[Rfam]
RNA sequence: CUUCACGAAAACAACGAUAGCCCUGCCUCUCGAUCGUCCUUGCGGUUCCAAGACCGCGCCAGUAUGGAUUCGUGUUCCUUCCAGCAG
Numbered sequence: 001c002u003u004c005a006c007g008a009a010a011a012c013a014a015c016g017a018u019a020g021c022c023c024u025g026c027c028u029c030u031c032g033a034u035c036g037u038c039c040u041u042g043c044g045g046u047u048c049c050a051a052g053a054c055c056g057c058g059c060c061a062g063u064a065u066g067g068a069u070u071c072g073u074g075u076u077c078c079u080u081c082c083a084g085c086a087g
Base pairs, nucleotide, nucleotide: 034067035066036065039062040061041058042057043056044055045054046053047052
This 87-nucleotide RNA from Paenibacillus antri belongs to the Rfam family "BsrC".
About the family: The 301 nucleotide sequence from Kouji Nakamura has been trimmed to a highly conserved ~85 nucleotide long core to form this family.